[Rfam]
Rfam assigns this 120-nucleotide RNA from Rhizobium sp. AC44/96 to the family "Alphaproteobacterial ar14". Rfam's curators write: Smr14C2 was renamed NfeR1 (Nodule Formation Efficiency RNA) highly expressed in salt stress and during the symbiotic interaction on legume roots. A search with the family's covariance model found it, with a score of 102 bits.

RNA sequence: GAGAUUCGGAGCCGCGCACUCCUCCUCCCAGCGCACUCCGAUAGACUGAUGACACUCCUCCUCCCAGUCGUCAGUCACCUACACGACGCCCACCGGAUCCUCCCCCGGUGGGCGUUUUCG
Number, nucleotide and partner (000 for none) at each position: 001g000002a000003g000004a000005u000006u000007c040008g039009g038010a000011g036012c000013c000014g034015c033016g032017c031018a000019c000020u000021c000022c000023u000024c000025c000026u000027c000028c000029c000030a000031g017032c016033g015034c014035a000036c011037u000038c009039c008040g007041a000042u000043a000044g076045a075046c074047u073048g072049a071050u070051g069052a068053c067054a000055c000056u000057c000058c000059u000060c000061c000062u000063c000064c000065c000066a000067g053068u052069c051070g050071u049072c048073a047074g046075u045076c044077a000078c000079c000080u000081a000082c000083a000084c000085g000086a115087c114088g113089c112090c111091c110092a109093c108094c107095g106096g105097a000098u000099c000100c000101u000102c000103c000104c000105c096106c095107g094108g093109u092110g091111g090112g089113c088114g087115u086116u000117u000118u000119c000120g000